[Rfam]
RNA sequence: GGAAUUUGCUUCUAGGGUUCCGAUUUAGCCGUUUAUUCAGCUAAGUGACUGGUCCGAGAGAAGCAGCUAACUCAAAAUUCUGUUGAGAAUGCUGAGUUGGUCACACGGCGGGAAAAAAGCCCGGGAGAG
Numbered sequence: 001g002g003a004a005u006u007u008g009c010u011u012c013u014a015g016g017g018u019u020c021c022g023a024u025u026u027a028g029c030c031g032u033u034u035a036u037u038c039a040g041c042u043a044a045g046u047g048a049c050u051g052g053u054c055c056g057a058g059a060g061a062a063g064c065a066g067c068u069a070a071c072u073c074a075a076a077a078u079u080c081u082g083u084u085g086a087g088a089a090u091g092c093u094g095a096g097u098u099g100g101u102c103a104c105a106c107g108g109c110g111g112g113a114a115a116a117a118a119g120c121c122c123g124g125g126a127g128a129g
Stems, first nucleotide, its partner, number of pairs: 007065006015055002020052002022049001023046006066102001067100007104124001106127001110122003

Guanidine-I riboswitch aptamer: a 129-nucleotide sequence from Leptolyngbya sp. Cla-17. The organism belongs to Leptolyngbya, within Bacteria. Pairs were carried over by alignment from the consensus structure. The match comes from Rfam's covariance-model search (78 bits). Rfam links the family to the GO term regulation of gene expression.